[Rfam]
RNA: c-di-AMP riboswitch aptamer (ydaO/yuaA leader)
Organism: Paenibacillus mucilaginosus
RNA sequence: AAAAAAAACAGGCCGAAUCCAGUUCAGCAAAAGAUCUGGUACGGGGGAUUCUUUACUUGGGGUGAAUGUUCGUCUUAUCGAACUAGGGAGCAGCCUCUUCCGAAUCCGUCAACUAACCUCGGAGGCCGCAGGAGGAAUUCAG
Numbered sequence: 001a002a003a004a005a006a007a008a009c010a011g012g013c014c015g016a017a018u019c020c021a022g023u024u025c026a027g028c029a030a031a032a033g034a035u036c037u038g039g040u041a042c043g044g045g046g047g048a049u050u051c052u053u054u055a056c057u058u059g060g061g062g063u064g065a066a067u068g069u070u071c072g073u074c075u076u077a078u079c080g081a082a083c084u085a086g087g088g089a090g091c092a093g094c095c096u097c098u099u100c101c102g103a104a105u106c107c108g109u110c111a112a113c114u115a116a117c118c119u120c121g122g123a124g125g126c127c128g129c130a131g132g133a134g135g136a137a138u139u140c141a142g
Base pairs, nucleotide, nucleotide: 011127012126013125014124019039020038021037022036042121043120044119045118046117051059060107061106062105068083069082070081071080086101087100088099089098